[Rfam]
RNA sequence: ACUCCGUACUUACCUACAAUAUAGUAGCUCAAAUACAUGUAUCUCGCCUACUAUAUAGUAGGUAAGUACGGGGUUU
Numbered sequence: 001a002c003u004c005c006g007u008a009c010u011u012a013c014c015u016a017c018a019a020u021a022u023a024g025u026a027g028c029u030c031a032a033a034u035a036c037a038u039g040u041a042u043c044u045c046g047c048c049u050a051c052u053a054u055a056u057a058g059u060a061g062g063u064a065a066g067u068a069c070g071g072g073g074u075u076u
Base pairs, nucleotide, nucleotide: 001074002073003072004071005070006069007068008067009066010065011064012063013062014061015060017058019056020055021054022053023052024051025050026049027048029046031044033042034041035040
mir-7563 microRNA precursor family: a 76-nucleotide RNA sequence from Ameiurus melas. It scores 82 bits against the family's covariance model. The organism belongs to Ameiurus, within Eukaryota.